Group II catalytic intron D1-D4-1: a 79-nucleotide sequence from Solimonas aquatica. It scores 47 bits against the family's covariance model. From the family's description: Group II introns are found in rRNA, tRNA and mRNA of organelles in fungi, plants and protists, and also in mRNA in bacteria. Lineage of the source: Bacteria > Pseudomonadati > Pseudomonadota > Gammaproteobacteria > Solimonas.

RNA sequence: GAGCCUUUCGAGAGGGAGGUGAUCGCCGCGCAGAAGUCAGCAAAGGACGUAGUAGGCGCAACUGUCGGCGCUGAAGGUC
Number, nucleotide and partner (000 for none) at each position: 001g000002a000003g020004c019005c018006u017007u016008u015009c014010g000011a000012g000013a000014g009015g008016g007017a006018g005019g004020u003021g000022a000023u000024c000025g000026c000027c000028g000029c000030g000031c000032a000033g000034a000035a000036g000037u044038c000039a000040g000041c000042a000043a000044a037045g000046g079047a078048c077049g000050u000051a000052g000053u000054a000055g072056g071057c070058g069059c068060a000061a000062c000063u000064g000065u000066c000067g000068g059069c058070g057071c056072u055073g000074a000075a000076g000077g048078u047079c046

Description
The family has 237 seed sequences and 2,508 matches in Rfam 15.1. Gene Ontology term of the family: Group II intron splicing. A reference for the family is Bonen and Vogel (2001), "The ins and outs of group II introns", Trends Genet.